[Rfam]
RNA sequence: GAAUCGAUAGACCACUAGCGAGGUAUAGAGUUCCUACGUGACUUUUAUAGUGUAGGAACUUCAUACCGUGCUCUUGGAUUUGUCGGAU
Numbered sequence: 001g002a003a004u005c006g007a008u009a010g011a012c013c014a015c016u017a018g019c020g021a022g023g024u025a026u027a028g029a030g031u032u033c034c035u036a037c038g039u040g041a042c043u044u045u046u047a048u049a050g051u052g053u054a055g056g057a058a059c060u061u062c063a064u065a066c067c068g069u070g071c072u073c074u075u076g077g078a079u080u081u082g083u084c085g086g087a088u
Stems, first nucleotide, its partner, number of pairs: 012077003017072004022067005028061010